This 107-nucleotide RNA from Streptococcus plurextorum belongs to the Rfam family "trpB ncRNA motif".
[Rfam]
RNA sequence: GGCAUAGAUACGACUUUUUGGAGUACUUCAAAAAAGUAUCUGUGCCGCUUGUCUUAGAUCUCAAUCUAGUGAAAGCGCCAUAGAAAACUAGGCGCUUUUUUGUAUUU
Numbered sequence: 001g002g003c004a005u006a007g008a009u010a011c012g013a014c015u016u017u018u019u020g021g022a023g024u025a026c027u028u029c030a031a032a033a034a035a036g037u038a039u040c041u042g043u044g045c046c047g048c049u050u051g052u053c054u055u056a057g058a059u060c061u062c063a064a065u066c067u068a069g070u071g072a073a074a075g076c077g078c079c080a081u082a083g084a085a086a087a088c089u090a091g092g093c094g095c096u097u098u099u100u101u102g103u104a105u106u107u
Stems, first nucleotide, its partner, number of pairs: 001046011015034001017033003021029001074096004079092001081090003
Annotation
It is annotated as a cis-regulatory element. Taxonomically the source falls in Streptococcus plurextorum (Bacteria, Bacilli, Lactobacillales, Streptococcaceae). From the family's description: trpB ncRNA motif was reported as a strong cis regulatory motif candidate, with potential to be a cis regulatory riboswitch type, it have been identified in Firmicutes and Fusobacteria. The motif have been recognised upstream of an uncharacterized ABC transporter with strong homology to amino acid transporters. It is also occasionally located upstream of trpB gene, that codes for a tryptophan synthase. The family's consensus secondary structure is taken from published work. For this family Rfam cites "The discovery of novel noncoding RNAs in 50 bacterial genomes" (Narunsky et al., Nucleic Acids Res, 2024). Its family is annotated with regulation of gene expression in the Gene Ontology.